[Rfam]
Nucleotides: 165
Stems, first nucleotide, its partner, number of pairs: 003163005008156001015027003031103002033047004042101002051078006083099005105148003
Number, partner (000 for none) and nucleotide at each position: 001000u002000u003163g004162u005161g006160c007159u008156c009000c010000g011000g012000g013000g014000u015027c016026g017025g018000u019000g020000a021000g022000a023000a024000u025017c026016c027015g028000a029000a030000c031103c032102g033047g034046c035045g036044g037000u038000g039000a040000a041000a042101g043100u044036c045035c046034g047033c048000g049000a050000c051078c052077c053076g054075c055074c056073g057000a058000u059000c060000g061000a062000a063000g064000a065000c066000a067000u068000u069000c070000g071000a072000c073056c074055g075054g076053c077052g078051g079000u080000u081000g082000a083099g084098c085097u086096g087095g088000u089000g090000g091000a092000a093000u094000u095087c096086c097085g098084g099083c100043a101042c102032c103031g104000a105148c106147g107146g108000u109000g110000a111000u112000g113000a114000g115000g116000u117000u118000c119000g120000g121000g122000u123000c124000a125000g126000c127000a128000a129000u130000g131000g132000c133000c134000g135000g136000g137000g138000u139000c140000u141000u142000c143000a144000g145000u146107c147106c148105g149000g150000a151000u152000g153000a154000g155000a156008g157000g158000a159007a160006g161005c162004a163003c164000a165000c
The record is a 165-nucleotide RNA sequence from Lacisediminihabitans changchengi, which matches "FMN riboswitch aptamer (RFN element)" in Rfam. The RFN element is a highly conserved domain that is found frequently in the 5'-untranslated regions of prokaryotic mRNAs that encode for flavin mononucleotide (FMN) biosynthesis and transport proteins. Lineage of the source: Bacteria > Actinomycetes > Micrococcales > Microbacteriaceae > Lacisediminihabitans. A reference for the family is Vitreschak et al. (2002), "Regulation of riboflavin biosynthesis and transport genes in bacteria by transcriptional and translational attenuation", Nucleic Acids Res. Rfam links the family to the GO term FMN binding.